[Rfam]
RNA sequence: CUCUUAUCGAGAGAGGUGGAGGGAUGUGCCCUAUGAAGCCCGGCAACCGUCUGAUAUAGAAAUGGUGCCAAUUCACAUAAAGUUCAACUUUAGAAGAUGAGAG
Numbered sequence: 001c002u003c004u005u006a007u008c009g010a011g012a013g014a015g016g017u018g019g020a021g022g023g024a025u026g027u028g029c030c031c032u033a034u035g036a037a038g039c040c041c042g043g044c045a046a047c048c049g050u051c052u053g054a055u056a057u058a059g060a061a062a063u064g065g066u067g068c069c070a071a072u073u074c075a076c077a078u079a080a081a082g083u084u085c086a087a088c089u090u091u092a093g094a095a096g097a098u099g100a101g102a103g
Stems, first nucleotide, its partner, number of pairs: 001103008013041001015040003021031003025077004042069004047065002050060003073095001078092006
Dot-bracket structure: ((((((((....(.(((...(((.[[[[)))......))))((((.((.(((.....)))...))))))...(]]]]((((((...))))))..)))))))))
The family of this 103-nucleotide RNA sequence from Staphylococcus capitis is "SAM riboswitch aptamer (S box leader)". The sequence is in the family's curated seed alignment. The base pairs follow the family's consensus structure, which is taken from published work.